Source information
Molybdenum/Tungsten riboswitch aptamer (Moco RNA motif): a 153-nucleotide sequence from Saccharospirillum salsuginis. Gene Ontology terms of the family: tungstate binding, regulation of gene expression and molybdenum ion binding. A reference for the family is Regulski et al. (2008), "in molybdenum cofactor and tungsten cofactor metabolism", Mol Microbiol. It scores 78 bits against the family's covariance model.

RNA sequence: CUUCGGGAACAACACCGAGCCCCGUGUGUCUAAGUUCGCUGUACGCGAAUACGACCGCCGGGCCUCGCGCCUUACGCUGUAAGGUUUGCGACAGGGUCAGUCUGGAAACGGCCUGGCCUCCCGACUUUGGAAAGGUGAGACAUGCUACAAGAC
Numbered sequence: 001c002u003u004c005g006g007g008a009a010c011a012a013c014a015c016c017g018a019g020c021c022c023c024g025u026g027u028g029u030c031u032a033a034g035u036u037c038g039c040u041g042u043a044c045g046c047g048a049a050u051a052c053g054a055c056c057g058c059c060g061g062g063c064c065u066c067g068c069g070c071c072u073u074a075c076g077c078u079g080u081a082a083g084g085u086u087u088g089c090g091a092c093a094g095g096g097u098c099a100g101u102c103u104g105g106a107a108a109c110g111g112c113c114u115g116g117c118c119u120c121c122c123g124a125c126u127u128u129g130g131a132a133a134g135g136u137g138a139g140a141c142a143u144g145c146u147a148c149a150a151g152a153c
Stems, first nucleotide, its partner, number of pairs: 003147001013137004019063004024058003028055003034050006065091005094119007102111003120130002